Rfam assigns this 99-nucleotide RNA from Gracilibacillus kekensis to the family "Purine riboswitch aptamer". It scores 78 bits against the family's covariance model.
[Rfam]
RNA sequence: AAUGUACUGUAAUUAAUUCCUCAUAUAAUCUGAGAAUAUGGCUCAAAAGUUUCUACCCGUCACCGUAAAUGAUGGACUAUGAGGGAAGAUGAACGAUGA
Numbered sequence: 001a002a003u004g005u006a007c008u009g010u011a012a013u014u015a016a017u018u019c020c021u022c023a024u025a026u027a028a029u030c031u032g033a034g035a036a037u038a039u040g041g042c043u044c045a046a047a048a049g050u051u052u053c054u055a056c057c058c059g060u061c062a063c064c065g066u067a068a069a070u071g072a073u074g075g076a077c078u079a080u081g082a083g084g085g086a087a088g089a090u091g092a093a094c095g096a097u098g099a
Stems, first nucleotide, its partner, number of pairs: 018085008029047001031045004057075006